[Rfam]
RNA: FMN riboswitch aptamer (RFN element)
RNA sequence: AUUCUGUUUCAGGGCGAGGUGCAAUUCCUCACUGGCGGUAAUUCGGCCCGCAACCCGUGUUGCAACAAGCCGAGAGUCCGCGACCCCGCGAGGCGCCAUGCUUCGCAGGCUGAUUCCGGUGAGAUCCCGGGACCAACGGUAUAGUCCGGAUGGAAGAGGCAGAGA
Numbered sequence: 001a002u003u004c005u006g007u008u009u010c011a012g013g014g015c016g017a018g019g020u021g022c023a024a025u026u027c028c029u030c031a032c033u034g035g036c037g038g039u040a041a042u043u044c045g046g047c048c049c050g051c052a053a054c055c056c057g058u059g060u061u062g063c064a065a066c067a068a069g070c071c072g073a074g075a076g077u078c079c080g081c082g083a084c085c086c087c088g089c090g091a092g093g094c095g096c097c098a099u100g101c102u103u104c105g106c107a108g109g110c111u112g113a114u115u116c117c118g119g120u121g122a123g124a125u126c127c128c129g130g131g132a133c134c135a136a137c138g139g140u141a142u143a144g145u146c147c148g149g150a151u152g153g154a155a156g157a158g159g160c161a162g163a164g165a
Base pairs, nucleotide, nucleotide: 003163004162005161006160007159008158009157010156017029018028019027031145032144033135034134035089036088037087038086092111093110094109115131116130117129118128119127137148138147139146